[Rfam]
Notes:
Shown here is a 175-nucleotide sequence from Thermocoleostomius sinensis, a member of the family "c-di-AMP riboswitch aptamer (ydaO/yuaA leader)". The source organism's lineage runs through Bacteria, Cyanophyceae, Oculatellales, Thermocoleostomius and Thermocoleostomius sinensis. Pairs were carried over by alignment from the consensus structure. The match comes from Rfam's covariance-model search (56 bits).
RNA sequence: UCCAUGAACCUGCUGAAGCGGAGGAACCAACAUUCGGGGCAAAUCUUUUAAAGGAUGAAGGACAAAGGAUAAAUCAAAUCUUUUAGCCUUGAGCCUUAGUACUUUAACCUUUCCAAGAAGGACACCUCUCAGUCCUCGCCCGUCAGCUAACUCCGUAGGCAUCGAGAGGGACUGA
Dot-bracket structure: ((............)).((((((....(.......)(((.....(((...................................................................)))..((((........))))...))).........))))))...................